[Rfam]
The record is a 136-nucleotide RNA from Caenorhabditis angaria, which matches "Caenorhabditis snoRNA ceN84" in Rfam.
Taxonomically the source falls in Caenorhabditis (Eukaryota, Metazoa, Rhabditidae, Peloderinae).
Rfam classes the family as an H/ACA-box small nucleolar RNA.
RNA sequence: AUGCCACAAUGUCUGGGCAGGGUGCCGCGCAAUGCGUGAACAACCUAAUCCAUUGAUGGCUAUAUAAAACUUCAAUUUCGAUUAAUCCCUGUCAAGUUCUUUAUUAUCUUGUCAGUUUCAUGCCCGAAAUACAAUC
Number, nucleotide and partner (000 for none) at each position: 001a000002u000003g060004c059005c058006a000007c055008a054009a053010u052011g000012u000013c000014u000015g051016g050017g049018c000019a000020g046021g045022g044023u042024g041025c000026c038027g037028c036029g035030c034031a000032a000033u000034g030035c029036g028037u027038g026039a000040a000041c024042a023043a000044c022045c021046u020047a000048a000049u017050c016051c015052a010053u009054u008055g007056a000057u000058g005059g004060c003061u000062a000063u000064a000065u000066a000067a000068a000069a000070c000071u000072u000073c000074a000075a000076u129077u000078u127079c126080g125081a000082u000083u000084a000085a000086u000087c000088c000089c115090u114091g113092u000093c000094a110095a109096g108097u000098u106099c000100u000101u000102u000103a000104u000105u000106a098107u000108c096109u095110u094111g000112u000113c091114a090115g089116u000117u000118u000119c000120a000121u000122g000123c000124c000125c080126g079127a078128a000129a076130u000131a000132c000133a000134a000135u000136c000